[Rfam]
RNA sequence: GUUCUUUAUAAAGCGCCAGGACUAAACCACAUCGUUAAAUGGUUUAGUUGACGAGGAGGAGGUUCAUCGAGUCUUCGGCGGAUGCCUCCCGGUUGUUUACAUCUCAACCGUUAUGUUUUGAACGAAAACAAAGAGGUGACUCUUUGCACAAACGUUUGAAACAAGAUGAACG
Numbered sequence: 001g002u003u004c005u006u007u008a009u010a011a012a013g014c015g016c017c018a019g020g021a022c023u024a025a026a027c028c029a030c031a032u033c034g035u036u037a038a039a040u041g042g043u044u045u046a047g048u049u050g051a052c053g054a055g056g057a058g059g060a061g062g063u064u065c066a067u068c069g070a071g072u073c074u075u076c077g078g079c080g081g082a083u084g085c086c087u088c089c090c091g092g093u094u095g096u097u098u099a100c101a102u103c104u105c106a107a108c109c110g111u112u113a114u115g116u117u118u119u120g121a122a123c124g125a126a127a128a129c130a131a132a133g134a135g136g137u138g139a140c141u142c143u144u145u146g147c148a149c150a151a152a153c154g155u156u157u158g159a160a161a162c163a164a165g166a167u168g169a170a171c172g
Stems, first nucleotide, its partner, number of pairs: 020049008029040001058089005067078004090110006115162007129146007